The family of this 492-nucleotide part of an RNA from Lasiodiplodia theobromae is "Eukaryotic large subunit ribosomal RNA". Pairs were carried over by alignment from the consensus structure, which is taken from published work. The organism belongs to Lasiodiplodia, within Eukaryota. It scores 3460 bits against the family's covariance model.

[Rfam]
RNA sequence: CCUGCCGAAGUUUCCCUCAGGAUAGCAGUAACGUAUUCAGUUUUAUGAGGUAAAGCGAAUGAUUAGAGGCCUUGGGGCUGAAACAGCCUUAACCUAUUCUCAAACUUUAAAUAUGUAAGAAGUCCUUGUUACUUAGUUGAACGUGGACACUUGAAUGUACCGUUACUAGUGGGCCAUUUUUGGUAAGCAGAACUGGCGAUGCGGGAUGAACCGAACGCGAUGUUAAGGUGCCGGAAUGCACGCUCAUCAGACACCACAAAAGGUGUUAGUUCAUCUAGACAGCAGGACGGUGGCCAUGGAAGUCGGAAUCCGCUAAGGAGUGUGUAACAACUCACCUGCCGAAUGAACUAGCCCUGAAAAUGGAUGGCGCUCAAGCGUGCUACCCAUACAUCGCCGCCAGGGUAGAUACGAUGCCCUGGCGAGUAGGCAGGCGUGGAGGCCCGUGACGAAGCCUUGGGAGUGAUCCCGGGUCGAACGGCCUCUAGUGCAGAU
Numbered sequence: 001c002c003u004g005c006c007g008a009a010g011u012u013u014c015c016c017u018c019a020g021g022a023u024a025g026c027a028g029u030a031a032c033g034u035a036u037u038c039a040g041u042u043u044u045a046u047g048a049g050g051u052a053a054a055g056c057g058a059a060u061g062a063u064u065a066g067a068g069g070c071c072u073u074g075g076g077g078c079u080g081a082a083a084c085a086g087c088c089u090u091a092a093c094c095u096a097u098u099c100u101c102a103a104a105c106u107u108u109a110a111a112u113a114u115g116u117a118a119g120a121a122g123u124c125c126u127u128g129u130u131a132c133u134u135a136g137u138u139g140a141a142c143g144u145g146g147a148c149a150c151u152u153g154a155a156u157g158u159a160c161c162g163u164u165a166c167u168a169g170u171g172g173g174c175c176a177u178u179u180u181u182g183g184u185a186a187g188c189a190g191a192a193c194u195g196g197c198g199a200u201g202c203g204g205g206a207u208g209a210a211c212c213g214a215a216c217g218c219g220a221u222g223u224u225a226a227g228g229u230g231c232c233g234g235a236a237u238g239c240a241c242g243c244u245c246a247u248c249a250g251a252c253a254c255c256a257c258a259a260a261a262g263g264u265g266u267u268a269g270u271u272c273a274u275c276u277a278g279a280c281a282g283c284a285g286g287a288c289g290g291u292g293g294c295c296a297u298g299g300a301a302g303u304c305g306g307a308a309u310c311c312g313c314u315a316a317g318g319a320g321u322g323u324g325u326a327a328c329a330a331c332u333c334a335c336c337u338g339c340c341g342a343a344u345g346a347a348c349u350a351g352c353c354c355u356g357a358a359a360a361u362g363g364a365u366g367g368c369g370c371u372c373a374a375g376c377g378u379g380c381u382a383c384c385c386a387u388a389c390a391u392c393g394c395c396g397c398c399a400g401g402g403u404a405g406a407u408a409c410g411a412u413g414c415c416c417u418g419g420c421g422a423g424u425a426g427g428c429a430g431g432c433g434u435g436g437a438g439g440c441c442c443g444u445g446a447c448g449a450a451g452c453c454u455u456g457g458g459a460g461u462g463a464u465c466c467c468g469g470g471u472c473g474a475a476c477g478g479c480c481u482c483u484a485g486u487g488c489a490g491a492u
Stems, first nucleotide, its partner, number of pairs: 001431006011024001013022003027167007041120007053108001054106002060102003065097001067095003072092006079085001122148004127143004173197004178192005202213003217394005223388001227384003236381001238380001241377003261355003265352010282339005288312003294306002313317001318333001322331002395421009432487001434484008443476002451471002457466003